[Rfam]
RNA sequence: GGGUCUCUCUAGGUAGACCAGAUCUGAGCCUGGGAGCUCUAUGGCUAUUUGGGGAACCCAA
Numbered sequence: 001g002g003g004u005c006u007c008u009c010u011a012g013g014u015a016g017a018c019c020a021g022a023u024c025u026g027a028g029c030c031u032g033g034g035a036g037c038u039c040u041a042u043g044g045c046u047a048u049u050u051g052g053g054g055a056a057c058c059c060a061a
Base pairs, nucleotide, nucleotide: 001059002058003057004056006055007054008053009052010051011050012049013048014047015046016045018044019043020042022040026039027038028037029036
Rfam assigns this 61-nucleotide RNA from Lentivirus humimdef1 to the family "Trans-activation response element (TAR)". For this family Rfam cites "HIV-1 TAR miRNA protects against apoptosis by altering cellular gene expression" (Klase et al., Retrovirology, 2009). About the family: This family represents the HIV trans-activation response (TAR) element which is known to be required for the trans-activation of the viral promoter and for virus replication. The TAR hairpin acts as a binding site for the Tat protein and this interaction stimulates the activity of the long terminal repeat promoter. Further experiments have shown that TAR acts as a miRNA that protects against apoptosis. The family has 45 seed sequences and 48 matches in Rfam 15.1. Rfam's curators put it in the seed alignment.